[Rfam]
RNA sequence: ACGAUGUUCCGCUGCCGGGCACUUAGCAGGUAUGAGCAUUAG
Numbered sequence: 001a002c003g004a005u006g007u008u009c010c011g012c013u014g015c016c017g018g019g020c021a022c023u024u025a026g027c028a029g030g031u032a033u034g035a036g037c038a039u040u041a042g
Base pairs, nucleotide, nucleotide: 003040004039005038006037007036008035009034013032014031015029017027
Ribosomal protein L19 leader: a 42-nucleotide RNA from Amphibacillus marinus.
Rfam's curators write: This family is a putative r-protein leader autoregulatory structure found in B. subtilis and other low-GC Gram-positive bacteria. It is located in the 5' untranslated regions of mRNAs encoding ribosomal protein L19 (rplS).
The family's consensus secondary structure was predicted with CMfinder.
Rfam links the family to the GO term regulation of gene expression.
The literature on the family includes a 1994 paper in Prog Nucleic Acid Res Mol Biol by Zengel and Lindahl, "Diverse mechanisms for regulating ribosomal protein synthesis in Escherichia coli".
NCBI's taxonomy places the organism under Bacteria, Bacillota, Bacilli, Bacillaceae, Amphibacillus.